[Rfam]
RNA sequence: UUUUAAAUGCGUUUAUUAAAUGCGUUUGUCUAAGUAUUUUAUUUAAGAUUAUUCUUGUAUAUAUAUUUUCUUUUUAUUAGUUCUUAUUACAAUAUAUAUAUUCCUUAUUAUUAAAAUAUUUGUAGCAUAGUAAUUUAUUAAUUAAUUAUUAAAGAGUUCCAUAGAAAUUUUUUAAAUUAUAACAAAUAAAAUAAUGUAUGAAUUAAAAUAAAAAUUUUAAUAAAAAUUAAAUAAUUAAAAUAGGGCAAGUCCUACUCUCCUUUACAAAGAGAACAUUAUUAUAUAUGUAUUUGUAUGUUUGAUUGGGGCAAUACUAUAUUUAGUUAUAUAGAAAAAGAACUAUAAUUAUUGAAAUAGUAAAAGGUUCGAGCAGGUUAACAAGCAUAUAUAUAAAAUGUGUUUCAUCGUCUACUUAUUGUUUUAAAUUGAUUGUUCAUCAAAAUUACAAUUCGUUAGUUGGGUUAAAAUCGUUGUAAAGCAGAUUUGUUUAUAUAUUUAAUUAAUAAAUAAAAGUAAAAUAAAUAUUAGUACGCAAGGAUUGAUUAUAAUUAUUUAAAUUGAUGAU
Numbered sequence: 001u002u003u004u005a006a007a008u009g010c011g012u013u014u015a016u017u018a019a020a021u022g023c024g025u026u027u028g029u030c031u032a033a034g035u036a037u038u039u040u041a042u043u044u045a046a047g048a049u050u051a052u053u054c055u056u057g058u059a060u061a062u063a064u065a066u067u068u069u070c071u072u073u074u075u076a077u078u079a080g081u082u083c084u085u086a087u088u089a090c091a092a093u094a095u096a097u098a099u100a101u102u103c104c105u106u107a108u109u110a111u112u113a114a115a116a117u118a119u120u121u122g123u124a125g126c127a128u129a130g131u132a133a134u135u136u137a138u139u140a141a142u143u144a145a146u147u148a149u150u151a152a153a154g155a156g157u158u159c160c161a162u163a164g165a166a167a168u169u170u171u172u173u174a175a176a177u178u179a180u181a182a183c184a185a186a187u188a189a190a191a192u193a194a195u196g197u198a199u200g201a202a203u204u205a206a207a208a209u210a211a212a213a214a215u216u217u218u219a220a221u222a223a224a225a226a227u228u229a230a231a232u233a234a235u236u237a238a239a240a241u242a243g244g245g246c247a248a249g250u251c252c253u254a255c256u257c258u259c260c261u262u263u264a265c266a267a268a269g270a271g272a273a274c275a276u277u278a279u280u281a282u283a284u285a286u287g288u289a290u291u292u293g294u295a296u297g298u299u300u301g302a303u304u305g306g307g308g309c310a311a312u313a314c315u316a317u318a319u320u321u322a323g324u325u326a327u328a329u330a331g332a333a334a335a336a337g338a339a340c341u342a343u344a345a346u347u348a349u350u351g352a353a354a355u356a357g358u359a360a361a362a363g364g365u366u367c368g369a370g371c372a373g374g375u376u377a378a379c380a381a382g383c384a385u386a387u388a389u390a391u392a393a394a395a396u397g398u399g400u401u402u403c404a405u406c407g408u409c410u411a412c413u414u415a416u417u418g419u420u421u422u423a424a425a426u427u428g429a430u431u432g433u434u435c436a437u438c439a440a441a442a443u444u445a446c447a448a449u450u451c452g453u454u455a456g457u458u459g460g461g462u463u464a465a466a467a468u469c470g471u472u473g474u475a476a477a478g479c480a481g482a483u484u485u486g487u488u489u490a491u492a493u494a495u496u497u498a499a500u501u502a503a504u505a506a507a508u509a510a511a512a513g514u515a516a517a518a519u520a521a522a523u524a525u526u527a528g529u530a531c532g533c534a535a536g537g538a539u540u541g542a543u544u545a546u547a548a549u550u551a552u553u554u555a556a557a558u559u560g561a562u563g564a565u
Stems, first nucleotide, its partner, number of pairs: 241254004256482003260478008269469002273288004291311004314331006337367005380402006405460003409456003412452001415449005427436003
Shown here is a 565-nucleotide sequence from Trypanosoma vivax, a member of the family "Trypanosomatid mitochondrial large subunit ribosomal RNA". For this family Rfam cites "Structure of a mitochondrial ribosome with minimal RNA" (Sharma et al., Proc Natl Acad Sci U S A, 2009). The base pairs follow the family's consensus structure, which was predicted with RNAalifold. A search with the family's covariance model found it, with a score of 468 bits.